A member of the RNA family "Nuclear RNase P" from Acanthamoeba castellanii, 333 nucleotides long. A search with the family's covariance model found it, with a score of 112 bits. Ribonuclease P (RNase P) is a ubiquitous endoribonuclease, found in archaea, bacteria and eukarya as well as chloroplasts and mitochondria. Its best characterised activity is the generation of mature 5'-ends of tRNAs by cleaving the 5'-leader elements of precursor-tRNAs. Cellular RNase Ps are ribonucleoproteins. Rfam links the family to the GO terms ribonuclease P activity, ribonuclease P complex and tRNA processing. Lineage of the source: Eukaryota > Amoebozoa > Longamoebia > Acanthamoeba > Acanthamoeba castellanii. The family's RNA type in Rfam is ribozyme.

RNA sequence: UCAGGGUGAAGCUUGUGUUAGGUGCAAACAUACGCCCACCGUCCUCUUCAAGAGCGGCGGUGGUACCUCAAUCAGUGCACUUGGGAAGGUCUGAGGAAGCCGACAAUCUCUAAGCGGGAGUCCCUCUCAAGAGGGAGCUCGGGGACCAGAAACGACACUCGCGCGCUUUAGGGACCGGAGAGCUGGCACACGACCGCAGGGCGACCUGCGCGAUGCCCACACCACACACUCCGCCCCGCGCCUGGUGAAACGACCCGGGUGGCUAGCAACUAUCAGUUCAAUACACAAAGCCGUCAUCGACAGGCAACUCAAUUCAGACUACUCUCACCCUGA
Numbered sequence: 001u002c003a004g005g006g007u008g009a010a011g012c013u014u015g016u017g018u019u020a021g022g023u024g025c026a027a028a029c030a031u032a033c034g035c036c037c038a039c040c041g042u043c044c045u046c047u048u049c050a051a052g053a054g055c056g057g058c059g060g061u062g063g064u065a066c067c068u069c070a071a072u073c074a075g076u077g078c079a080c081u082u083g084g085g086a087a088g089g090u091c092u093g094a095g096g097a098a099g100c101c102g103a104c105a106a107u108c109u110c111u112a113a114g115c116g117g118g119a120g121u122c123c124c125u126c127u128c129a130a131g132a133g134g135g136a137g138c139u140c141g142g143g144g145a146c147c148a149g150a151a152a153c154g155a156c157a158c159u160c161g162c163g164c165g166c167u168u169u170a171g172g173g174a175c176c177g178g179a180g181a182g183c184u185g186g187c188a189c190a191c192g193a194c195c196g197c198a199g200g201g202c203g204a205c206c207u208g209c210g211c212g213a214u215g216c217c218c219a220c221a222c223c224a225c226a227c228a229c230u231c232c233g234c235c236c237c238g239c240g241c242c243u244g245g246u247g248a249a250a251c252g253a254c255c256c257g258g259g260u261g262g263c264u265a266g267c268a269a270c271u272a273u274c275a276g277u278u279c280a281a282u283a284c285a286c287a288a289a290g291c292c293g294u295c296a297u298c299g300a301c302a303g304g305c306a307a308c309u310c311a312a313u314u315c316a317g318a319c320u321a322c323u324c325u326c327a328c329c330c331u332g333a
Base pairs, nucleotide, nucleotide: 001333002332003331004330007327008326009325013288014287015286016285017284018283020082021081022080023079024078025077026076091317092316093315094314095313098264099263100262101261107119108118109117110116121136122135123134124133125132126131137260138259139258140257141256142255143254156244157243290305291304292303293301294300